Overview
mir-5904 microRNA precursor family: an 84-nucleotide RNA sequence from Haemonchus placei. The organism belongs to Haemonchus, within Eukaryota. Pairs were carried over by alignment from the consensus structure, which was predicted with RNAalifold. Its family is annotated with RISC complex and miRNA-mediated post-transcriptional gene silencing in the Gene Ontology.
[Rfam]
RNA sequence: GCUUCCAUCGUUUUCGAGUGUCGUAGAGGCUUUUACAAACGGAAGUAUUGUAAGCCCUCUAUUUUCACUUCGAAAAUAAUAAGG
Numbered sequence: 001g002c003u004u005c006c007a008u009c010g011u012u013u014u015c016g017a018g019u020g021u022c023g024u025a026g027a028g029g030c031u032u033u034u035a036c037a038a039a040c041g042g043a044a045g046u047a048u049u050g051u052a053a054g055c056c057c058u059c060u061a062u063u064u065u066c067a068c069u070u071c072g073a074a075a076a077u078a079a080u081a082a083g084g
Base pairs, nucleotide, nucleotide: 002083003082004081010077011076012075013074014073015072016071017070018068019067020066023062024061025060026059027058028057029056032054033053034052035051036050037049038048039046040045